[Rfam]
RNA sequence: CCGUGCUAAGCGGGGAGGUAGCGGUGCCCUGUACUCGCAAUCCGCUAUAGCGAGGCCGAAUCCCCGCCCGAGGUGGGGUGGCCUCAAGGCCUGCCUUAAGCGAUUGGUGUUGACACCUGGGUCCUGCACAAUCGGAACCCGUGAACCCUGUCAGGUCCGGAAGGAAGCAGCAGUAAGCGGUCAUUCUGAUGUGUUGCAGGGUCGCCUGGGUCGAGCCAUGACCUUGAGUAACGCUUGGGGCCACCUCAUCGAAGGUGGGUGCACGG
Dot-bracket structure: ((((((...((((((.(.(...).).))))...(((((...........)))))))......((((((...(((((..((((((((((...((..(((((...(.(((......((((((((((((((((.(((((..((((.....((((....(((....)))....))))...))))....)))))))...))))))...))))))))...)))..)..))))).))...))))))))))..)))))...)))))).))))))
Numbered sequence: 001c002c003g004u005g006c007u008a009a010g011c012g013g014g015g016a017g018g019u020a021g022c023g024g025u026g027c028c029c030u031g032u033a034c035u036c037g038c039a040a041u042c043c044g045c046u047a048u049a050g051c052g053a054g055g056c057c058g059a060a061u062c063c064c065c066g067c068c069c070g071a072g073g074u075g076g077g078g079u080g081g082c083c084u085c086a087a088g089g090c091c092u093g094c095c096u097u098a099a100g101c102g103a104u105u106g107g108u109g110u111u112g113a114c115a116c117c118u119g120g121g122u123c124c125u126g127c128a129c130a131a132u133c134g135g136a137a138c139c140c141g142u143g144a145a146c147c148c149u150g151u152c153a154g155g156u157c158c159g160g161a162a163g164g165a166a167g168c169a170g171c172a173g174u175a176a177g178c179g180g181u182c183a184u185u186c187u188g189a190u191g192u193g194u195u196g197c198a199g200g201g202u203c204g205c206c207u208g209g210g211u212c213g214a215g216c217c218a219u220g221a222c223c224u225u226g227a228g229u230a231a232c233g234c235u236u237g238g239g240g241c242c243a244c245c246u247c248a249u250c251g252a253a254g255g256u257g258g259g260u261g262c263a264c265g266g
Stems, first nucleotide, its partner, number of pairs: 001266006010056002012030004017025001019023001034054005063259006072250005079243010092230002096227005104220001106217003115211008123200006129191002132189005139180004148173004156165003